[Rfam]
RNA: Group II catalytic intron D1-D4-3
Nucleotides: 180
Base pairs, nucleotide, nucleotide: 001016002015003014004013005012006011028180031177037172041167042166043165044164045163046162047160049158050157051156063155064154065153066152067151068150075147076146077145079142082139083138084137086114087113088112089111092107093106094105095104
Number, partner (000 for none) and nucleotide at each position: 001016c002015u003014a004013g005012u006011u007000g008000u009000g010000a011006a012005g013004c014003u015002g016001g017000g018000a019000c020000u021000g022000a023000a024000g025000g026000a027000a028180g029000c030000g031177a032000g033000a034000c035000u036000g037172c038000a039000a040000a041167u042166u043165u044164c045163g046162g047160u048000a049158c050157u051156g052000a053000g054000g055000a056000a057000c058000a059000c060000g061000a062000a063155c064154c065153a066152u067151a068150u069000a070000c071000c072000g073000a074000g075147g076146c077145u078000a079142u080000g081000a082139g083138g084137u085000c086114g087113g088112a089111u090000g091000a092107g093106c094105a095104g096000g097000c098000a099000c100000a101000u102000a103000a104095c105094u106093g107092u108000g109000a110000a111089g112088u113087c114086c115000u116000a117000a118000a119000u120000a121000u122000c123000u124000u125000u126000a127000a128000g129000g130000g131000a132000u133000a134000a135000g136000c137084g138083c139082c140000g141000a142079a143000a144000u145077a146076g147075u148000a149000g150068a151067u152066a153065u154064g155063g156051c157050a158049g159000g160047g161000a162046u163045c164044g165043a166042a167041a168000g169000a170000a171000a172037g173000a174000g175000g176000a177031u178000g179000c180028u